[Rfam]
RNA sequence: UUUUAAAUUUUUAUUUUUUUUUCCCCCCUUUUUUUUCCCUUUUUUAAAAAAAAAACCCGGGCCCCGGGGGGGGGGAAAAAAAAGGGGGGGGGAAAAACAAAAACGGGUUUUUUUUUC
Number, nucleotide and partner (000 for none) at each position: 001u000002u000003u000004u000005a000006a000007a000008u000009u000010u000011u000012u000013a000014u000015u000016u096017u095018u094019u093020u000021u091022u090023c089024c088025c087026c086027c085028c084029u083030u082031u081032u080033u079034u078035u000036u076037c075038c074039c073040u000041u000042u055043u054044u053045u052046a000047a000048a000049a000050a000051a000052a045053a044054a043055a042056c070057c069058c068059g000060g000061g000062c000063c000064c000065c000066g000067g000068g058069g057070g056071g000072g000073g039074g038075g037076a036077a000078a034079a033080a032081a031082a030083a029084g028085g027086g026087g025088g024089g023090g022091g021092g000093a019094a018095a017096a016097a000098c000099a000100a111101a110102a109103a108104c000105g000106g000107g000108u103109u102110u101111u100112u000113u000114u000115u000116u000117c000
The family of this 117-nucleotide RNA sequence from Polypterus senegalus is "Phenylalanine leader peptide".
NCBI's taxonomy places the organism under Eukaryota, Metazoa, Eumetazoa, Actinopterygii, Polypterus.
Rfam links the family to the GO term cellular amino acid metabolic process.
On this family, see Gurvich et al., Nucleic Acids Res 2010: "Two groups of phenylalanine biosynthetic operon leader peptides genes: a high level of apparently incidental frameshifting in decoding Escherichia coli pheL".
It scores 56 bits against the family's covariance model.
The family's consensus secondary structure was predicted with CMfinder.